[Rfam]
RNA sequence: UAAGAGGGCGGAGUGAUGACUCUCUUGUAUAAUGAAAAAUUCCUCUUUGACUGGCCGAUAGCAAUAUCGGCUUUUUUUUA
Numbered sequence: 001u002a003a004g005a006g007g008g009c010g011g012a013g014u015g016a017u018g019a020c021u022c023u024c025u026u027g028u029a030u031a032a033u034g035a036a037a038a039a040u041u042c043c044u045c046u047u048u049g050a051c052u053g054g055c056c057g058a059u060a061g062c063a064a065u066a067u068c069g070g071c072u073u074u075u076u077u078u079u080a
Stems, first nucleotide, its partner, number of pairs: 007020001009018002028034002053072008
RNA: sroB RNA